Rfam assigns this 102-nucleotide RNA sequence from Alkalihalobacillus alcalophilus to the family "Purine riboswitch aptamer".

RNA sequence: AGUGUAUAGAGUAAUCACCUUCGUAUAUCCUUAGGAAUAAGGCCUAAGAGUCUCUACCGGAUUUCCGUAAAAAAUCUGACUAUGAAGGCAGAAUAGACAUGC
Numbered sequence: 001a002g003u004g005u006a007u008a009g010a011g012u013a014a015u016c017a018c019c020u021u022c023g024u025a026u027a028u029c030c031u032u033a034g035g036a037a038u039a040a041g042g043c044c045u046a047a048g049a050g051u052c053u054c055u056a057c058c059g060g061a062u063u064u065c066c067g068u069a070a071a072a073a074a075u076c077u078g079a080c081u082a083u084g085a086a087g088g089c090a091g092a093a094u095a096g097a098c099a100u101g102c
Stems, first nucleotide, its partner, number of pairs: 018088008030048006058078007
Dot-bracket structure: .................((((((((....((((((.......)))))).........(((((((.......)))))))..))))))))..............
Rfam's curators write: Riboswitches are metabolite binding domains within certain messenger RNAs that serve as precision sensors for their corresponding targets. The base pairs follow the family's consensus structure, which is taken from published work.